Annotation:
The family of this 173-nucleotide RNA from Marinithermofilum abyssi is "Lysine riboswitch aptamer". From the family's description: Riboswitches are metabolite binding domains within certain messenger RNAs that serve as precision sensors for their corresponding targets. The match comes from Rfam's covariance-model search (122 bits). Taxonomically the source falls in Marinithermofilum (Bacteria, Bacillati, Bacilli, Caryophanales).
RNA sequence: GAAUGAGGUAGAGGUGCGGGUCCGCAAUAGUACCUGUCCGGAGAAAGGCAUCGAGGAUGGACAGGGAAAGGGCGGCUCGCCGAAGUGCACAGGGUGCCCAGCUCUGUGUGCUGGUCAGUUGCUGAAGAAGUAACUGAUUGCCGUGGCAAUGGCCGCGGAGCGCUACCGUCAGA
Numbered sequence: 001g002a003a004u005g006a007g008g009u010a011g012a013g014g015u016g017c018g019g020g021u022c023c024g025c026a027a028u029a030g031u032a033c034c035u036g037u038c039c040g041g042a043g044a045a046a047g048g049c050a051u052c053g054a055g056g057a058u059g060g061a062c063a064g065g066g067a068a069a070g071g072g073c074g075g076c077u078c079g080c081c082g083a084a085g086u087g088c089a090c091a092g093g094g095u096g097c098c099c100a101g102c103u104c105u106g107u108g109u110g111c112u113g114g115u116c117a118g119u120u121g122c123u124g125a126a127g128a129a130g131u132a133a134c135u136g137a138u139u140g141c142c143g144u145g146g147c148a149a150u151g152g153c154c155g156c157g158g159a160g161c162g163c164u165a166c167c168g169u170c171a172g173a
Stems, first nucleotide, its partner, number of pairs: 007167005016080006023074003033065008084112012113139011141158007